[Rfam]
RNA: Purine riboswitch aptamer
RNA sequence: CAUGACAAAUGAACACGACCUCAUAUAAUCUUGGGAAUACGGCCCAUAAGUCUCUACCCAAUGACCUUAAAUCAUUGGACUAUGAAGGAAAGUGAACCUAUA
Dot-bracket structure: ..................(.(((((...(..((((.......))))..)........(((((((.......)))))))..))))).)...............
Numbered sequence: 001c002a003u004g005a006c007a008a009a010u011g012a013a014c015a016c017g018a019c020c021u022c023a024u025a026u027a028a029u030c031u032u033g034g035g036a037a038u039a040c041g042g043c044c045c046a047u048a049a050g051u052c053u054c055u056a057c058c059c060a061a062u063g064a065c066c067u068u069a070a071a072u073c074a075u076u077g078g079a080c081u082a083u084g085a086a087g088g089a090a091a092g093u094g095a096a097c098c099u100a101u102a
Stems, first nucleotide, its partner, number of pairs: 019087001021085005029049001032046004058078007